The family of this 141-nucleotide RNA from Paraconexibacter algicola is "c-di-AMP riboswitch aptamer (ydaO/yuaA leader)". NCBI's taxonomy places the organism under Bacteria, Bacillati, Solirubrobacterales, Paraconexibacteraceae, Paraconexibacter.

[Rfam]
RNA sequence: GUCAUAGCAGCGCCGAGUCGUCCGGGCCACGGUCCGGACGAGCGGGGGACCCACUCCAGGGGCGAAUCGACCAGGUGUCGUAGCGCGACUUUUCCGCGCGAGUCCGUCAGCUAACCCCGUAGGCAGACGAAAAGAGAUUCG
Numbered sequence: 001g002u003c004a005u006a007g008c009a010g011c012g013c014c015g016a017g018u019c020g021u022c023c024g025g026g027c028c029a030c031g032g033u034c035c036g037g038a039c040g041a042g043c044g045g046g047g048g049a050c051c052c053a054c055u056c057c058a059g060g061g062g063c064g065a066a067u068c069g070a071c072c073a074g075g076u077g078u079c080g081u082a083g084c085g086c087g088a089c090u091u092u093u094c095c096g097c098g099c100g101a102g103u104c105c106g107u108c109a110g111c112u113a114a115c116c117c118c119g120u121a122g123g124c125a126g127a128c129g130a131a132a133a134g135a136g137a138u139u140c141g
Stems, first nucleotide, its partner, number of pairs: 012124003018041010042120006052059001060105003068080004083099004